Source information
Shown here is a 28-nucleotide RNA sequence from Dokdonia sp. 4H-3-7-5, a member of the family "L19-Flavobacteria ribosomal protein leader".

RNA sequence: UAACCUCUGACGAUGUUCGUGAAUGUUG
Numbered sequence: 001u002a003a004c005c006u007c008u009g010a011c012g013a014u015g016u017u018c019g020u021g022a023a024u025g026u027u028g
Stems, first nucleotide, its partner, number of pairs: 001028004008023001010020004
Rfam's curators put it in the seed alignment. The family's RNA type in Rfam is cis-regulatory leader.